[Rfam]
This 128-nucleotide RNA from Desulfitobacterium metallireducens belongs to the Rfam family "Ribosomal protein L10 leader". The match comes from Rfam's covariance-model search (72 bits). The literature on the family includes a 1994 paper in Prog Nucleic Acid Res Mol Biol by Zengel and Lindahl, "Diverse mechanisms for regulating ribosomal protein synthesis in Escherichia coli". Rfam links the family to the GO term regulation of gene expression. The family's RNA type in Rfam is cis-regulatory leader. The base pairs follow the family's consensus structure, which was predicted with CMfinder.
RNA sequence: GAAUUAAAUAGCAAUCCGCUGUAGACAGCAGGGGCUGAAAAGCUUAAUAGCCUGCCGAGGUUGGAGAAUUGAUCCCUAAUACUGGGCAUUCUUAACCUCUGCAUACGCGGAGGUUUUUAUUUCUUUAU
Numbered sequence: 001g002a003a004u005u006a007a008a009u010a011g012c013a014a015u016c017c018g019c020u021g022u023a024g025a026c027a028g029c030a031g032g033g034g035c036u037g038a039a040a041a042g043c044u045u046a047a048u049a050g051c052c053u054g055c056c057g058a059g060g061u062u063g064g065a066g067a068a069u070u071g072a073u074c075c076c077u078a079a080u081a082c083u084g085g086g087c088a089u090u091c092u093u094a095a096c097c098u099c100u101g102c103a104u105a106c107g108c109g110g111a112g113g114u115u116u117u118u119a120u121u122u123c124u125u126u127a128u
Stems, first nucleotide, its partner, number of pairs: 028055005034043003096113007
Dot-bracket structure: ...........................(((((.(((....))).......)))))........................................(((((((....)))))))...............